Notes:
The family of this 79-nucleotide sequence from Crocodylus porosus is "Mammalian CPEB3 ribozyme". The organism belongs to Crocodylus, within Eukaryota. On this family, see Salehi-Ashtiani et al., Science 2006: "A genomewide search for ribozymes reveals an HDV-like sequence in the human CPEB3 gene". Pairs were carried over by alignment from the consensus structure, which is taken from published work.

[Rfam]
Nucleotides: 079
Base pairs, nucleotide, nucleotide: 013048018047019046020045021044025078026077027076029074030073031043032042052068053067054066055065056064057063058062
Number, partner (000 for none) and nucleotide at each position: 001000a002000g003000a004000g005000g006000c007000u008000g009000c010000a011000a012000g013048u014000u015000u016000g017000a018047g019046g020045c021044c022000a023000c024000a025078g026077c027076a028000a029074a030073a031043g032042c033000a034000c035000u036000u037000a038000u039000a040000g041000g042032g043031c044021g045020g046019c047018c048013a049000u050000g051000u052068c053067a054066g055065a056064u057063u058062u059000a060000a061000c062058a063057a064056a065055u066054c067053u068052g069000c070000a071000a072000a073030u074029u075000c076027u077026g078025u079000g